RNA: mir-395 microRNA precursor family
Organism: Senna tora
RNA sequence: GUGGCACCAGGAGUUCCCCCAAACACUUCAGUAGGGACACUUGUUAAUUAGUUGAAGAGAUUAGAGGCCCCAAUGAAGUGUUCAAGGGAACUCUAGGGGACAC
Numbered sequence: 001g002u003g004g005c006a007c008c009a010g011g012a013g014u015u016c017c018c019c020c021a022a023a024c025a026c027u028u029c030a031g032u033a034g035g036g037a038c039a040c041u042u043g044u045u046a047a048u049u050a051g052u053u054g055a056a057g058a059g060a061u062u063a064g065a066g067g068c069c070c071c072a073a074u075g076a077a078g079u080g081u082u083c084a085a086g087g088g089a090a091c092u093c094u095a096g097g098g099g100a101c102a103c
Base pairs, nucleotide, nucleotide: 005099007097008096011093012092013091014090015089016088017087018086022082023081024080025079026078027077028076029075030074032072034070035069